Overview:
A member of the RNA family "Selenocysteine insertion sequence 1" from Nothobranchius furzeri, 68 nucleotides long.

RNA sequence: GUGAUGUUUAUGAACGUCUGGGCUGAAAGCAGGAAGACUGCUAGCACAGACGGGAUGCCCCCCAUCAC
Numbered sequence: 001g002u003g004a005u006g007u008u009u010a011u012g013a014a015c016g017u018c019u020g021g022g023c024u025g026a027a028a029g030c031a032g033g034a035a036g037a038c039u040g041c042u043a044g045c046a047c048a049g050a051c052g053g054g055a056u057g058c059c060c061c062c063c064a065u066c067a068c
Stems, first nucleotide, its partner, number of pairs: 001068005015052006022045003030040003
Rfam describes the family as follows. The incorporation of selenocysteine into a protein sequence is directed by an in-frame UGA codon (usually a stop codon) within the coding region of the mRNA. Selenoprotein mRNAs contain a conserved secondary structure in the 3' UTR that is required for the distinction of UGA stop from UGA selenocysteine.
Rfam classes the family as a cis-regulatory element.
NCBI's taxonomy places the organism under Eukaryota, Eurypterygia, Ctenosquamata, Ovalentaria, Nothobranchius.
The literature on the family includes a 1996 paper in RNA by Walczak et al., "A novel RNA structural motif in the selenocysteine insertion element of eukaryotic selenoprotein mRNAs".
The family's consensus secondary structure is taken from published work.
The match comes from Rfam's covariance-model search (35 bits).